This 88-nucleotide sequence from Romanomermis culicivorax belongs to the Rfam family "mir-10 microRNA precursor family". The organism belongs to Romanomermis, within Eukaryota. A search with the family's covariance model found it, with a score of 51 bits. On this family, see Ambros, Cell 2001: "microRNAs: tiny regulators with great potential".

RNA sequence: CCUUAUAUACCCUGUAGAUCCGGGUUUUUGUAGAAAAAAUUUCCGAAAUAGAGAGAAUCAGAAGCUCGUUUUUACAGGUAUGUAAGGG
Numbered sequence: 001c002c003u004u005a006u007a008u009a010c011c012c013u014g015u016a017g018a019u020c021c022g023g024g025u026u027u028u029u030g031u032a033g034a035a036a037a038a039a040u041u042u043c044c045g046a047a048a049u050a051g052a053g054a055g056a057a058u059c060a061g062a063a064g065c066u067c068g069u070u071u072u073u074a075c076a077g078g079u080a081u082g083u084a085a086g087g088g
Stems, first nucleotide, its partner, number of pairs: 002086006010078002016073003021068010